RNA sequence: GAGACACCCUUAUGGAGCAGGACUUGCUUCAGUGGGGCUUUGGUGCUUGCUGAGUCUGCCCCUUGAGGUGUUGCU
Numbered sequence: 001g002a003g004a005c006a007c008c009c010u011u012a013u014g015g016a017g018c019a020g021g022a023c024u025u026g027c028u029u030c031a032g033u034g035g036g037g038c039u040u041u042g043g044u045g046c047u048u049g050c051u052g053a054g055u056c057u058g059c060c061c062c063u064u065g066a067g068g069u070g071u072u073g074c075u
Stems, first nucleotide, its partner, number of pairs: 001074001003072005009067004014062002017059003021056003029053008037044002